Source information: A member of the RNA family "mir-1000 microRNA precursor family" from Aphis gossypii, 77 nucleotides long. The family has 13 seed sequences and 152 matches in Rfam 15.1. NCBI's taxonomy places the organism under Eukaryota, Opisthokonta, Arthropoda, Aphis, Aphis.
RNA sequence: CACUCCGAUAUUGUCCUGUCACAGCAGUAAUGUCACUUAUUCGAAUUGUACUGCUGUCGCGGGACAUUUUCGGAGCU
Numbered sequence: 001c002a003c004u005c006c007g008a009u010a011u012u013g014u015c016c017u018g019u020c021a022c023a024g025c026a027g028u029a030a031u032g033u034c035a036c037u038u039a040u041u042c043g044a045a046u047u048g049u050a051c052u053g054c055u056g057u058c059g060c061g062g063g064a065c066a067u068u069u070u071c072g073g074a075g076c077u
Base pairs, nucleotide, nucleotide: 003075004074005073006072012066013065014064015063016062017061018060022056023055024054025053026052027051028050029049